[Rfam]
RNA sequence: AAAUUCCUACGGUGUACGUAGCUUGUGUAUGUCUUAAACCAAUAAGUAUAAUGCGGAAGUUCAAUAUUUAAAUGUAGAUAGCAGGCCAUCUUUUUAAGAAGGAAGUUACAAACAUUUGUGAGAACAUCCACCUGUGAGAGCAGGUUUAUGGACAUCUAUAGAUAACGGCAUAUGUGGGACUAUA
Numbered sequence: 001a002a003a004u005u006c007c008u009a010c011g012g013u014g015u016a017c018g019u020a021g022c023u024u025g026u027g028u029a030u031g032u033c034u035u036a037a038a039c040c041a042a043u044a045a046g047u048a049u050a051a052u053g054c055g056g057a058a059g060u061u062c063a064a065u066a067u068u069u070a071a072a073u074g075u076a077g078a079u080a081g082c083a084g085g086c087c088a089u090c091u092u093u094u095u096a097a098g099a100a101g102g103a104a105g106u107u108a109c110a111a112a113c114a115u116u117u118g119u120g121a122g123a124a125c126a127u128c129c130a131c132c133u134g135u136g137a138g139a140g141c142a143g144g145u146u147u148a149u150g151g152a153c154a155u156c157u158a159u160a161g162a163u164a165a166c167g168g169c170a171u172a173u174g175u176g177g178g179a180c181u182a183u184a
Stems, first nucleotide, its partner, number of pairs: 003181001005179007012171004017167003031153004035148006055129003059125004066119001069118007081106002086102002089099002
The record is a 184-nucleotide RNA from Bacillus mycoides, which matches "6S / SsrS RNA" in Rfam. NCBI's taxonomy places the organism under Bacteria, Bacillota, Bacilli, Bacillaceae, Bacillus mycoides. Rfam classes the family as a non-coding RNA gene.